[Rfam]
The record is a 98-nucleotide RNA sequence from Lytechinus variegatus, which matches "mir-2004 microRNA precursor family" in Rfam. The base pairs follow the family's consensus structure, which was predicted with RNAalifold. The sequence is in the family's curated seed alignment.
RNA sequence: AGAGGCUACUUGCGGACCUUUCUGUGGCUGUCGUGUUAAGUGUGAUUCUAUGAAGACACUUCACACACAACCACAGGAAGUUUUGCAUGGUAGCCAUG
Dot-bracket structure: ...(((((((((((((.((((((((((.(((.((((.((((((..(((...))).)))))).))))))).)))))))))).)))))).)))))))...